[Rfam]
RNA: miR-430 microRNA precursor family
Organism: Etheostoma spectabile
RNA sequence: CUUAUUACUCUAACUUUAGCAUUGACUUAACUGUUCAGUAAGUGCUACUUGUUGGGGUAGUUGGC
Number, nucleotide and partner (000 for none) at each position: 001c000002u000003u000004a061005u060006u059007a058008c057009u056010c055011u054012a000013a052014c051015u000016u000017u000018a046019g045020c044021a043022u042023u041024g000025a039026c038027u037028u000029a000030a000031c000032u000033g000034u000035u000036c000037a027038g026039u025040a000041a023042g022043u021044g020045c019046u018047a000048c000049u000050u000051g014052u013053u000054g011055g010056g009057g008058u007059a006060g005061u004062u000063g000064g000065c000